Source information:
The record is a 181-nucleotide RNA sequence from Eubacterium sp. AF36-5BH, which matches "6S / SsrS RNA" in Rfam. A search with the family's covariance model found it, with a score of 75 bits. On this family, see Wassarman and Storz, Cell 2000: "6S RNA regulates E. coli RNA polymerase activity". It is annotated as a non-coding RNA gene.
RNA sequence: UCUUACCUGAGAUGUUGGUUUGAAACCUGUUAAUUUUGAACCUACAGUUUGAUUAAAGGGAUUCCUAUAUCUCUAAAGGGAUGUCAAGCCUCCUUGUGAGUGGAAGGCAGUAACUUUAGAUGCGGUUGCCCACCUGGCGUUUGCUAGGACUCAAAACACAGGACGGCAUUUCGGGUAUUAC
Numbered sequence: 001u002c003u004u005a006c007c008u009g010a011g012a013u014g015u016u017g018g019u020u021u022g023a024a025a026c027c028u029g030u031u032a033a034u035u036u037u038g039a040a041c042c043u044a045c046a047g048u049u050u051g052a053u054u055a056a057a058g059g060g061a062u063u064c065c066u067a068u069a070u071c072u073c074u075a076a077a078g079g080g081a082u083g084u085c086a087a088g089c090c091u092c093c094u095u096g097u098g099a100g101u102g103g104a105a106g107g108c109a110g111u112a113a114c115u116u117u118a119g120a121u122g123c124g125g126u127u128g129c130c131c132a133c134c135u136g137g138c139g140u141u142u143g144c145u146a147g148g149a150c151u152c153a154a155a156a157c158a159c160a161g162g163a164c165g166g167c168a169u170u171u172c173g174g175g176u177a178u179u180a181c
Base pairs, nucleotide, nucleotide: 004177005176006175007174008173009172010171011170012169013168014167015166018164019163034156035155037153038152039151041148042147058131059130060129064125065124069121072120073119074118075117076116077115078114083108084107089103090102092100